[Rfam]
RNA sequence: UUCAAUCUGAAUGUUGCUGUUCGUAUAUCCUCAAAGAUAAGGUUUGGGGGUUUCUACAGGGAACCGUAAAUUCCUGGCUACGGAUAGGGUGCUUUGGCAU
Numbered sequence: 001u002u003c004a005a006u007c008u009g010a011a012u013g014u015u016g017c018u019g020u021u022c023g024u025a026u027a028u029c030c031u032c033a034a035a036g037a038u039a040a041g042g043u044u045u046g047g048g049g050g051u052u053u054c055u056a057c058a059g060g061g062a063a064c065c066g067u068a069a070a071u072u073c074c075u076g077g078c079u080a081c082g083g084a085u086a087g088g089g090u091g092c093u094u095u096g097g098c099a100u
Base pairs, nucleotide, nucleotide: 018086019085020084021083022082023081024080025079029049030048031047032046033045034044035043059075060074061073062072063071

The family of this 100-nucleotide sequence from Paenibacillus albidus is "Purine riboswitch aptamer". Pairs were carried over by alignment from the consensus structure, which is taken from published work. The organism belongs to Paenibacillus, within Bacteria.